[Rfam]
The record is a 149-nucleotide sequence from Psychrobacillus sp. FJAT-21963, which matches "c-di-AMP riboswitch aptamer (ydaO/yuaA leader)" in Rfam. NCBI's taxonomy places the organism under Bacteria, Bacilli, Caryophanales, Bacillaceae, Psychrobacillus.
RNA sequence: AAUUCUAUAUCGCUUAAUCCAAACGGAGCGGGGGAACCAUUUUAUGUGGCUCGAUGAGUCAUAUGGGGUGAAUCCUACGAAUGUAGGUAGGGCUACUCUUUUAGCCCGAAUCCGACAGCUAACCUCGUAAGCGUAAUGAGAGAGGAGAU
Numbered sequence: 001a002a003u004u005c006u007a008u009a010u011c012g013c014u015u016a017a018u019c020c021a022a023a024c025g026g027a028g029c030g031g032g033g034g035a036a037c038c039a040u041u042u043u044a045u046g047u048g049g050c051u052c053g054a055u056g057a058g059u060c061a062u063a064u065g066g067g068g069u070g071a072a073u074c075c076u077a078c079g080a081a082u083g084u085a086g087g088u089a090g091g092g093c094u095a096c097u098c099u100u101u102u103a104g105c106c107c108g109a110a111u112c113c114g115a116c117a118g119c120u121a122a123c124c125u126c127g128u129a130a131g132c133g134u135a136a137u138g139a140g141a142g143a144g145g146a147g148a149u
Stems, first nucleotide, its partner, number of pairs: 011133004018027003028128006038065002066113003074087004090107004
Dot-bracket structure: ..........((((...(((....)))((((((....((........................))(((.....((((......))))..((((..........))))...))).........)))))).))))................